[Rfam]
RNA sequence: UAAUCUUACACACUGCUCCCAACCGAGACCUAUGUAGGCAGUAUAAUACAUCGUCUCUCAUAUCCUGUAGUGAGGGAUUACAGGAAAUAAGUUUCGCA
Numbered sequence: 001u002a003a004u005c006u007u008a009c010a011c012a013c014u015g016c017u018c019c020c021a022a023c024c025g026a027g028a029c030c031u032a033u034g035u036a037g038g039c040a041g042u043a044u045a046a047u048a049c050a051u052c053g054u055c056u057c058u059c060a061u062a063u064c065c066u067g068u069a070g071u072g073a074g075g076g077a078u079u080a081c082a083g084g085a086a087a088u089a090a091g092u093u094u095c096g097c098a
Base pairs, nucleotide, nucleotide: 013041014040015039016038017037020034021033025057026056027055028054029053063085064084065083066082067081068080069079
Rfam assigns this 98-nucleotide RNA sequence to the family "PhotoRC-II RNA".